Notes:
Shown here is a 110-nucleotide sequence from Betacoronavirus ratti, a member of the family "Coronavirus packaging signal". It scores 101 bits against the family's covariance model. The organism belongs to China Rattus coronavirus HKU24, within Viruses. The literature on the family includes a 2007 paper in J Virol by Chen et al., "New structure model for the packaging signal in the genome of group IIa coronaviruses". Rfam classes the family as a cis-regulatory element. About the family: This family represents a predicted coronavirus packaging signal. Within a virally infected cell, viral genome and viral proteins specifically and selectively unite into progeny viruses. This process is called packaging and is vital for viral replication. Viral RNA containing a packaging signal allows the sequence to be efficiently packaged into the virion.
RNA sequence: AUGUUAUCUUCAGCCAGUUAACCAGCCUGGGAGUCAGCUCUAACUGGAGCCCACAAGGUAAUCCAGGGGGUUAUGCCAAACCCGGUAAUGGCGCUGGUAAUGAUGCUCUA
Numbered sequence: 001a002u003g004u005u006a007u008c009u010u011c012a013g014c015c016a017g018u019u020a021a022c023c024a025g026c027c028u029g030g031g032a033g034u035c036a037g038c039u040c041u042a043a044c045u046g047g048a049g050c051c052c053a054c055a056a057g058g059u060a061a062u063c064c065a066g067g068g069g070g071u072u073a074u075g076c077c078a079a080a081c082c083c084g085g086u087a088a089u090g091g092c093g094c095u096g097g098u099a100a101u102g103a104u105g106c107u108c109u110a
Stems, first nucleotide, its partner, number of pairs: 008105001010103003014097003022091003026085002035075002038070003044066005050058002